[Rfam]
RNA sequence: UCUGAUAAUAGAUGUGUUAGAAAAUUUCUGCAUGGUGAAUCCCCCUGUGCGGAGGGGCGACUGGUGAACGGUAUGAUCUCUUUGAUGAUCGUAAGCGAGAAUACGCGGGUUUGGUGGCACCAGGCCGAACUCACCGGGAGGCACCCGGCACCAUGCAGUAUUCAGAGAUUAGGCAUAUAUCCAGGCUCCUCAUCGCAGGAGCCUUUUUACAUGC
Numbered sequence: 001u002c003u004g005a006u007a008a009u010a011g012a013u014g015u016g017u018u019a020g021a022a023a024a025u026u027u028c029u030g031c032a033u034g035g036u037g038a039a040u041c042c043c044c045c046u047g048u049g050c051g052g053a054g055g056g057g058c059g060a061c062u063g064g065u066g067a068a069c070g071g072u073a074u075g076a077u078c079u080c081u082u083u084g085a086u087g088a089u090c091g092u093a094a095g096c097g098a099g100a101a102u103a104c105g106c107g108g109g110u111u112u113g114g115u116g117g118c119a120c121c122a123g124g125c126c127g128a129a130c131u132c133a134c135c136g137g138g139a140g141g142c143a144c145c146c147g148g149c150a151c152c153a154u155g156c157a158g159u160a161u162u163c164a165g166a167g168a169u170u171a172g173g174c175a176u177a178u179a180u181c182c183a184g185g186c187u188c189c190u191c192a193u194c195g196c197a198g199g200a201g202c203c204u205u206u207u208u209a210c211a212u213g214c
Base pairs, nucleotide, nucleotide: 015164016163030156031155032154033153034152035151036150037149042057043056044055045054046053064092065091066090095106096105097104107132108131109130110129112127113126114125134148135147136146137145138144173214174213175212176211183204184203185202186201187200188199189198190197

This 214-nucleotide sequence from Diegovirus POCJ13 belongs to the Rfam family "Gammaproteobacterial sRNA STnc100". Rfam classes the family as a small RNA. The organism belongs to Diegovirus POCJ13, within Viruses.